The family of this 509-nucleotide sequence from Streptomyces sp. SLBN-118 is "Saccharopolyspora sRNA 350". The base pairs follow the family's consensus structure, which was predicted with RNAfold. Its family is annotated with regulation of secondary metabolite biosynthetic process in the Gene Ontology. NCBI's taxonomy places the organism under Bacteria, Bacillati, Actinomycetota, Kitasatosporales, Streptomyces. The family has 2 seed sequences and 1,170 matches in Rfam 15.1. It scores 171 bits against the family's covariance model.
RNA sequence: CGCGCGGUGUACUCCCAGGGGGCCUCCCCGUCGAGGAGCGCGUGAUCGCCGAAGUACGCGCCGUCGGCGAGAACUCCGAGCACCGUCUCGUCGCCGUACGGUCCGGUGCCGAUCUGCUCCACGCGGCCGUGGGCCAGCAGGAAGAUCCGGUCGGCCGCCGCACCGGAGGUGGCGAGCACCUCGCCGGCCGCGAACUCCCGCUGCUCGCAGCGGUUCGCCAGUUCGGUGAAGACCGCUUCGUCGUCGAACUCCCGCAGGGCGGGCAGCUCGGCCAGCUCGGCAGGGAUGACCGCCACCCGGUCGCCGGUCUGCACGAAGGUCACGCGCCCGUCGCCGACCGAGUAGCUCAGGCGGCGGUUCACACGAUAGGUACCGCCCUGUACCUGCACCCACGGCAGCAUGCGCAGCAGCCACCGGGAGGUGAUCUCCUGCAUCUGCGGGGCGGACUUCGUCGUUGUCGCAAGGUUCCGCGCCGCGGCCGUACCAAGACUCUGCUGCUUCGGCGUCUG
Numbered sequence: 001c002g003c004g005c006g007g008u009g010u011a012c013u014c015c016c017a018g019g020g021g022g023c024c025u026c027c028c029c030g031u032c033g034a035g036g037a038g039c040g041c042g043u044g045a046u047c048g049c050c051g052a053a054g055u056a057c058g059c060g061c062c063g064u065c066g067g068c069g070a071g072a073a074c075u076c077c078g079a080g081c082a083c084c085g086u087c088u089c090g091u092c093g094c095c096g097u098a099c100g101g102u103c104c105g106g107u108g109c110c111g112a113u114c115u116g117c118u119c120c121a122c123g124c125g126g127c128c129g130u131g132g133g134c135c136a137g138c139a140g141g142a143a144g145a146u147c148c149g150g151u152c153g154g155c156c157g158c159c160g161c162a163c164c165g166g167a168g169g170u171g172g173c174g175a176g177c178a179c180c181u182c183g184c185c186g187g188c189c190g191c192g193a194a195c196u197c198c199c200g201c202u203g204c205u206c207g208c209a210g211c212g213g214u215u216c217g218c219c220a221g222u223u224c225g226g227u228g229a230a231g232a233c234c235g236c237u238u239c240g241u242c243g244u245c246g247a248a249c250u251c252c253c254g255c256a257g258g259g260c261g262g263g264c265a266g267c268u269c270g271g272c273c274a275g276c277u278c279g280g281c282a283g284g285g286a287u288g289a290c291c292g293c294c295a296c297c298c299g300g301u302c303g304c305c306g307g308u309c310u311g312c313a314c315g316a317a318g319g320u321c322a323c324g325c326g327c328c329c330g331u332c333g334c335c336g337a338c339c340g341a342g343u344a345g346c347u348c349a350g351g352c353g354g355c356g357g358u359u360c361a362c363a364c365g366a367u368a369g370g371u372a373c374c375g376c377c378c379u380g381u382a383c384c385u386g387c388a389c390c391c392a393c394g395g396c397a398g399c400a401u402g403c404g405c406a407g408c409a410g411c412c413a414c415c416g417g418g419a420g421g422u423g424a425u426c427u428c429c430u431g432c433a434u435c436u437g438c439g440g441g442g443c444g445g446a447c448u449u450c451g452u453c454g455u456u457g458u459c460g461c462a463a464g465g466u467u468c469c470g471c472g473c474c475g476c477g478g479c480c481g482u483a484c485c486a487a488g489a490c491u492c493u494g495c496u497g498c499u500u501c502g503g504c505g506u507c508u509g
Stems, first nucleotide, its partner, number of pairs: 006390006016380001018328002021325001025322001028319002031316002040312002042309001045308004050303003054233002059228005065111004080099001082097002085094002118221001122217002127212001130209001132206002135203003140198002143196002148192002153189005159183001164174002234299002240290006249283002252280003256277002260271001262269001329342001331340001351379001353377005361371002391431002394428002397425001399423003403418001405416001407415001437476004442471005447465003451461002477508002480505003484502001486500003